[Rfam]
RNA sequence: UAACAGCCAACUGUAACGGAGUGCUUCGCGCACGGGUUGGGCAGGCAC
Dot-bracket structure: .......(((((........((((.....)))).))))).........
Numbered sequence: 001u002a003a004c005a006g007c008c009a010a011c012u013g014u015a016a017c018g019g020a021g022u023g024c025u026u027c028g029c030g031c032a033c034g035g036g037u038u039g040g041g042c043a044g045g046c047a048c
Stems, first nucleotide, its partner, number of pairs: 008039005021033004

A member of the RNA family "ssnA RNA" from Gemmiger sp. An194, 48 nucleotides long. The base pairs follow the family's consensus structure, which is taken from published work. The match comes from Rfam's covariance-model search (42 bits). By type it is a cis-regulatory element.